[Rfam]
RNA sequence: UGGUGACUUUAGGGGUGUCCUUUAACGGACUGAGAUAAUACCCUUUGAACCUGAUCCGGGUAAUGCCGGCGAAGGGAAAAGUGAUGGCAAUGCU
Numbered sequence: 001u002g003g004u005g006a007c008u009u010u011a012g013g014g015g016u017g018u019c020c021u022u023u024a025a026c027g028g029a030c031u032g033a034g035a036u037a038a039u040a041c042c043c044u045u046u047g048a049a050c051c052u053g054a055u056c057c058g059g060g061u062a063a064u065g066c067c068g069g070c071g072a073a074g075g076g077a078a079a080a081g082u083g084a085u086g087g088c089a090a091u092g093c094u
Base pairs, nucleotide, nucleotide: 006082007081008080009079010078011044012043013042014041016038017030018029019028020027050075051074052073056069057068058067059066
Dot-bracket structure: .....(((((((((.(((((......)))).......)..)))).....(((...((((......))))...)))..)))))............